[Rfam]
RNA sequence: ACGAAGAUGCGGGGGGACUCAGACGAGUUGAGAACGCGACAGCGUGACCCUUUGAACCUGUUGGCUAACACCUACGUAGGGAGACAUCAUAUGGCGAAAU
Numbered sequence: 001a002c003g004a005a006g007a008u009g010c011g012g013g014g015g016g017a018c019u020c021a022g023a024c025g026a027g028u029u030g031a032g033a034a035c036g037c038g039a040c041a042g043c044g045u046g047a048c049c050c051u052u053u054g055a056a057c058c059u060g061u062u063g064g065c066u067a068a069c070a071c072c073u074a075c076g077u078a079g080g081g082a083g084a085c086a087u088c089a090u091a092u093g094g095c096g097a098a099a100u
Stems, first nucleotide, its partner, number of pairs: 006088004011051004016045001017028004035044003057080004061074001063072002
Description:
The record is a 100-nucleotide RNA from Bifidobacterium animalis, which matches "TPP riboswitch aptamer (THI element)" in Rfam. The match comes from Rfam's covariance-model search (57 bits). The family's consensus secondary structure is taken from published work. The literature on the family includes a 2002 paper in J Biol Chem by Rodionov et al., "Comparative genomics of thiamin biosynthesis in procaryotes. New genes and regulatory mechanisms". Taxonomically the source falls in Bifidobacterium animalis subsp. lactis (Bacteria, Bacillati, Bifidobacterium, Bifidobacterium animalis). Vitamin B(1) in its active form thiamin pyrophosphate (TPP) is an essential coenzyme that is synthesised by coupling of pyrimidine and thiazole moieties in bacteria. The previously detected thiamin-regulatory element, thi box was extended, resulting in a new, highly conserved RNA secondary structure, the THI element, which is widely distributed in eubacteria and also occurs in some archaea.